RNA sequence: CAGUUGGGAGGCUCGCCGAUGCGAGCCGUUGGGGCCUAUUGCUCCUCCCGGCUG
Numbered sequence: 001c002a003g004u005u006g007g008g009a010g011g012c013u014c015g016c017c018g019a020u021g022c023g024a025g026c027c028g029u030u031g032g033g034g035c036c037u038a039u040u041g042c043u044c045c046u047c048c049c050g051g052c053u054g
Base pairs, nucleotide, nucleotide: 001054002053003052004051005050006049007048008047010027011026012025013024014023015022016021031045032044033043034042